[Rfam]
RNA sequence: GAGUGUGUGAUGUGUGCACUGAGCUCCCUAAUCUAUACAGGCUUCUGUUAUGGAGGUGGUGGCCAGUCCUGGUGUCUGAAUGAUU
Numbered sequence: 001g002a003g004u005g006u007g008u009g010a011u012g013u014g015u016g017c018a019c020u021g022a023g024c025u026c027c028c029u030a031a032u033c034u035a036u037a038c039a040g041g042c043u044u045c046u047g048u049u050a051u052g053g054a055g056g057u058g059g060u061g062g063c064c065a066g067u068c069c070u071g072g073u074g075u076c077u078g079a080a081u082g083a084u085u
Stems, first nucleotide, its partner, number of pairs: 001085002004082003009076003019071001021069001023067003026062002029059001031057004038052002040049003
Overview
This 85-nucleotide sequence from Mesocricetus auratus belongs to the Rfam family "Small nucleolar RNA SNORD86". Rfam links the family to the GO terms RNA processing and nucleolus. The literature on the family includes a 2001 paper in Biochem Biophys Res Commun by Filippini et al., "U86, a novel snoRNA with an unprecedented gene organization in yeast". The base pairs follow the family's consensus structure, which was predicted with RNAalifold. A search with the family's covariance model found it, with a score of 60 bits. It is annotated as a C/D-box small nucleolar RNA. About the family: U86 belongs to the C/D family of snoRNAs. It is the human orthologue of Xenopus laevis U86 and has no identified RNA target.